RNA sequence: AUAGUAAAUUUUGUGUGUUCGGUAUUUUUGUUUGAGGCUUUUAUUAAGUUUAGAAUCUGCCGCCUGAUAAAUUUCUUUUGGUCUUGUUUUUUGCUUUAAUGGGCUUUACAUUUAAAUAGCGGUUGUCUGGGU
Numbered sequence: 001a002u003a004g005u006a007a008a009u010u011u012u013g014u015g016u017g018u019u020c021g022g023u024a025u026u027u028u029u030g031u032u033u034g035a036g037g038c039u040u041u042u043a044u045u046a047a048g049u050u051u052a053g054a055a056u057c058u059g060c061c062g063c064c065u066g067a068u069a070a071a072u073u074u075c076u077u078u079u080g081g082u083c084u085u086g087u088u089u090u091u092u093g094c095u096u097u098a099a100u101g102g103g104c105u106u107u108a109c110a111u112u113u114a115a116a117u118a119g120c121g122g123u124u125g126u127c128u129g130g131g132u
Stems, first nucleotide, its partner, number of pairs: 003076002006074005020062005027055003036050004093104004
RNA: purD RNA motif